[Rfam]
RNA sequence: AGAGGUCACAAGUUUGAGGCCAUAACAGAAGUGCUUCUGGUGUGGUCCCAUCAGAUUUCAGUGAAUCUGUGAAUUCUGCU
Dot-bracket structure: .................[[[[..(.((((((((.......)))]]]]....(((((((....)))))))....))))).)
Numbered sequence: 001a002g003a004g005g006u007c008a009c010a011a012g013u014u015u016g017a018g019g020c021c022a023u024a025a026c027a028g029a030a031g032u033g034c035u036u037c038u039g040g041u042g043u044g045g046u047c048c049c050a051u052c053a054g055a056u057u058u059c060a061g062u063g064a065a066u067c068u069g070u071g072a073a074u075u076c077u078g079c080u
Stems, first nucleotide, its partner, number of pairs: 018047004024080001026078005031043003052069007